[Rfam]
RNA sequence: AUAAUUAUUGCCGGCAAAAUGUGGGAAAACCCGUUUAUUCAUUAAGGUUUUCCCACAUUUUGCCGGCAAUUAUUGUU
Number, nucleotide and partner (000 for none) at each position: 001a000002u000003a000004a000005u072006u000007a070008u069009u068010g067011c066012c065013g064014g063015c062016a061017a060018a059019a058020u057021g056022u000023g054024g053025g052026a051027a050028a049029a048030c047031c046032c000033g000034u000035u000036u000037a000038u000039u000040c000041a000042u000043u000044a000045a000046g031047g030048u029049u028050u027051u026052c025053c024054c023055a000056c021057a020058u019059u018060u017061u016062g015063c014064c013065g012066g011067c010068a009069a008070u007071u000072a005073u000074u000075g000076u000077u000

Annotation
Shown here is a 77-nucleotide RNA from Apolygus lucorum, a member of the family "mir-31 microRNA precursor family". The match comes from Rfam's covariance-model search (53 bits). Taxonomically the source falls in Apolygus (Eukaryota, Panarthropoda, Paraneoptera, Mirinae). Its Rfam clan is "mir-31 microRNA precursor family". On this family, see Ma et al., bioRxiv [Preprint] 2023: "Structure of pre-miR-31 reveals an active role in Dicer processing". The family's consensus secondary structure was predicted with RNAalifold.